A member of the RNA family "Archaeal small subunit ribosomal RNA" from candidate division MSBL1 archaeon SCGC-AAA261D19, 582 nucleotides of a longer RNA.
The source organism's lineage runs through Archaea, Methanobacteriati, Methanobacteriota and candidate division MSBL1.
The family is grouped with related families in Rfam's "SSU clan".
It scores 1523 bits against the family's covariance model.
For this family Rfam cites "Crystal structure of the ribosome at 5.5 A resolution" (Yusupov et al., Science, 2001).

[Rfam]
RNA sequence: UGGCGGGGGGGCACCACAAGGGGUGGAGCCUGCGGUUUAAUUGGAUUCAACGCCGGACAACUCACCGGGGGCGACGGCCGGUUGAAGGCCAAGCUGACGACUUUGCCGGACUAGCCGAGAGGUGGUGCAUGGCCGCCGGCAGCUCGUACUGUGAAGCGUCCUGUCAAGUCAGGUAACGAGCGAGACCCUCACCUCUAGUUGCCAUCAGAUCUUCCUUUGGAAGACGCUGGGUACUUUAGAGGGACCGCUGCCGAUAAGGCAGAGGAAGGAGAGGGCGACGGUAGGUCCGUAUGCCCCGAAUCCCCCGGGCUACACGCGGGCUACAAUGCGCAGGACAGAGGGAUGCGACCCCGAAAGGGGAAGCCAAACCCUAAACCUGUGCCUAGUUCGGAUCGAGGGCUGAAACUCGCCCUCGUGAAGCUGGAAUCCCUAGUAACCGCGUGCCACCAUCGCGCGGUGAAUACGUCCCUGCUCCUUGCACACACCGCCCGUCAAGUCACUCGAGUGGGAUUUGGAUGAGGCUUGUCGAAUUUGGGCAAGUCAAAUCCGGGUUCCGCAAGAGGGACUAAGUCGUAACAAGGU
Numbered sequence: 001u002g003g004c005g006g007g008g009g010g011g012c013a014c015c016a017c018a019a020g021g022g023g024u025g026g027a028g029c030c031u032g033c034g035g036u037u038u039a040a041u042u043g044g045a046u047u048c049a050a051c052g053c054c055g056g057a058c059a060a061c062u063c064a065c066c067g068g069g070g071g072c073g074a075c076g077g078c079c080g081g082u083u084g085a086a087g088g089c090c091a092a093g094c095u096g097a098c099g100a101c102u103u104u105g106c107c108g109g110a111c112u113a114g115c116c117g118a119g120a121g122g123u124g125g126u127g128c129a130u131g132g133c134c135g136c137c138g139g140c141a142g143c144u145c146g147u148a149c150u151g152u153g154a155a156g157c158g159u160c161c162u163g164u165c166a167a168g169u170c171a172g173g174u175a176a177c178g179a180g181c182g183a184g185a186c187c188c189u190c191a192c193c194u195c196u197a198g199u200u201g202c203c204a205u206c207a208g209a210u211c212u213u214c215c216u217u218u219g220g221a222a223g224a225c226g227c228u229g230g231g232u233a234c235u236u237u238a239g240a241g242g243g244a245c246c247g248c249u250g251c252c253g254a255u256a257a258g259g260c261a262g263a264g265g266a267a268g269g270a271g272a273g274g275g276c277g278a279c280g281g282u283a284g285g286u287c288c289g290u291a292u293g294c295c296c297c298g299a300a301u302c303c304c305c306c307g308g309g310c311u312a313c314a315c316g317c318g319g320g321c322u323a324c325a326a327u328g329c330g331c332a333g334g335a336c337a338g339a340g341g342g343a344u345g346c347g348a349c350c351c352c353g354a355a356a357g358g359g360g361a362a363g364c365c366a367a368a369c370c371c372u373a374a375a376c377c378u379g380u381g382c383c384u385a386g387u388u389c390g391g392a393u394c395g396a397g398g399g400c401u402g403a404a405a406c407u408c409g410c411c412c413u414c415g416u417g418a419a420g421c422u423g424g425a426a427u428c429c430c431u432a433g434u435a436a437c438c439g440c441g442u443g444c445c446a447c448c449a450u451c452g453c454g455c456g457g458u459g460a461a462u463a464c465g466u467c468c469c470u471g472c473u474c475c476u477u478g479c480a481c482a483c484a485c486c487g488c489c490c491g492u493c494a495a496g497u498c499a500c501u502c503g504a505g506u507g508g509g510a511u512u513u514g515g516a517u518g519a520g521g522c523u524u525g526u527c528g529a530a531u532u533u534g535g536g537c538a539a540g541u542c543a544a545a546u547c548c549g550g551g552u553u554c555c556g557c558a559a560g561a562g563g564g565a566c567u568a569a570g571u572c573g574u575a576a577c578a579a580g581g582u
Base pairs, nucleotide, nucleotide: 001482002481003479004478005477007476008475009474010473011472012471013470016466017465020430021429022428023427024426025324027322028321029320030319031318032317033316034315035313036312041056042055043054044053065308066307067306068305069304070303071302075117076116077115078114080111087107088106089105091103092102093101121297122296124295125294126293127292130291131290132286133285134284135282136281137280138279142181143180144179145178146177147176149156150155160173161172162171163170187274188273189272190271192242193241194240195239196238197237198236202231203230206229207228208227210224211223212222213221214220215219245265246264248262249261250260251259252258328382329381330380331379332378333377334376340371341370342369345364346363349360350359351358352357389420394415395414396413397412398411399410400409436458437457438456439455440454441453442452443451485580487577490573491572493570495567496566497565498564500562501561502560505557506556507555508554509553510552511551512550513549514548515547516546517545520542521541522540523539524538525537526536527535529533